[Rfam]
About this RNA:
This 150-nucleotide sequence from Sporomusa malonica belongs to the Rfam family "c-di-AMP riboswitch aptamer (ydaO/yuaA leader)". Rfam links the family to the GO terms regulation of gene expression and cyclic-di-AMP binding.

RNA sequence: CUACUUAUAAUGCCGAAUCCUUAUAAGGUACGGGGGAACCAAUAAAAAUACAGGGGUGAAUCCGCAAAAAUAUGCGGUAGGGCGUUCUCAUGUUCCUUCUCUUUUGCCCGAAUCCGACAGCUAACCCCGGAGGCUAAAGCUAAUGAGGUU
Numbered sequence: 001c002u003a004c005u006u007a008u009a010a011u012g013c014c015g016a017a018u019c020c021u022u023a024u025a026a027g028g029u030a031c032g033g034g035g036g037a038a039c040c041a042a043u044a045a046a047a048a049u050a051c052a053g054g055g056g057u058g059a060a061u062c063c064g065c066a067a068a069a070a071u072a073u074g075c076g077g078u079a080g081g082g083c084g085u086u087c088u089c090a091u092g093u094u095c096c097u098u099c100u101c102u103u104u105u106g107c108c109c110g111a112a113u114c115c116g117a118c119a120g121c122u123a124a125c126c127c128c129g130g131a132g133g134c135u136a137a138a139g140c141u142a143a144u145g146a147g148g149u150u
Base pairs, nucleotide, nucleotide: 012134013133014132019028020027031129032128033127034126035125040053054115055114056113062077063076064075065074080109081108082107083106
Pairs were carried over by alignment from the consensus structure.